[Rfam]
RNA sequence: AGGGCAGUAUCUUUGAUAAGAACUGCACCGACUUGAAGCGAAAACAGAUGGUGAAACAAUCUGCCUUGAUCCGUUGAAGGACUGGGACAGAGGG
Numbered sequence: 001a002g003g004g005c006a007g008u009a010u011c012u013u014u015g016a017u018a019a020g021a022a023c024u025g026c027a028c029c030g031a032c033u034u035g036a037a038g039c040g041a042a043a044a045c046a047g048a049u050g051g052u053g054a055a056a057c058a059a060u061c062u063g064c065c066u067u068g069a070u071c072c073g074u075u076g077a078a079g080g081a082c083u084g085g086g087a088c089a090g091a092g093g094g
Base pairs, nucleotide, nucleotide: 002029003028004026005025006024007023008022010021011020061090062089063088064086065085066084068082070081071080072079

Rfam assigns this 94-nucleotide RNA sequence from Thermaerobacillus caldiproteolyticus to the family "pan motif". It scores 63 bits against the family's covariance model. Lineage of the source: Bacteria > Bacillota > Caryophanales > Anoxybacillaceae > Thermaerobacillus. The family's RNA type in Rfam is cis-regulatory element.